This 65-nucleotide sequence from Bacillus licheniformis belongs to the Rfam family "Bacillaceae-1 RNA".
NCBI's taxonomy places the organism under Bacteria, Bacillati, Bacillota, Caryophanales, Bacillus licheniformis.
Pairs were carried over by alignment from the consensus structure, which is taken from published work.
The sequence is in the family's curated seed alignment.

[Rfam]
RNA sequence: GAAAGGAGACUCGGCUAAGGUCUUUCGCGUCCUGCGAAAAACGCCGGUCACCUUCGUCCUGGUGU
Numbered sequence: 001g002a003a004a005g006g007a008g009a010c011u012c013g014g015c016u017a018a019g020g021u022c023u024u025u026c027g028c029g030u031c032c033u034g035c036g037a038a039a040a041a042c043g044c045c046g047g048u049c050a051c052c053u054u055c056g057u058c059c060u061g062g063u064g065u
Stems, first nucleotide, its partner, number of pairs: 009048002012046004024038005052064001054062002